[Rfam]
RNA sequence: ACGAAGGAUACAGGAGAGAGCCUUGCUAAAAGGCCGCCGAAGGGACAAACUUUUGAAGCCCUGCUUAGAUUCAAGAGUGAAAUUCUCAGGCAAAAGGAUCGUAUCCAGACA
Numbered sequence: 001a002c003g004a005a006g007g008a009u010a011c012a013g014g015a016g017a018g019a020g021c022c023u024u025g026c027u028a029a030a031a032g033g034c035c036g037c038c039g040a041a042g043g044g045a046c047a048a049a050c051u052u053u054u055g056a057a058g059c060c061c062u063g064c065u066u067a068g069a070u071u072c073a074a075g076a077g078u079g080a081a082a083u084u085c086u087c088a089g090g091c092a093a094a095a096g097g098a099u100c101g102u103a104u105c106c107a108g109a110c111a
Stems, first nucleotide, its partner, number of pairs: 006106006013099001020034004036091003039087002043085003049078009
RNA: Glycine riboswitch aptamer